[Rfam]
RNA sequence: GUGUGCCUGGCUCCUCGUAUGCCAUUUGCAGUGGUCACCGUUUGGCGGUGGCUGUUGUGUAUGGCAUGGGAGAAGCCAUGCAUGC
Numbered sequence: 001g002u003g004u005g006c007c008u009g010g011c012u013c014c015u016c017g018u019a020u021g022c023c024a025u026u027u028g029c030a031g032u033g034g035u036c037a038c039c040g041u042u043u044g045g046c047g048g049u050g051g052c053u054g055u056u057g058u059g060u061a062u063g064g065c066a067u068g069g070g071a072g073a074a075g076c077c078a079u080g081c082a083u084g085c
Base pairs, nucleotide, nucleotide: 001085002084003083004082005081006080008078009077010076011075012074014072016070018068019067020066021065022064023063024062027059028058029057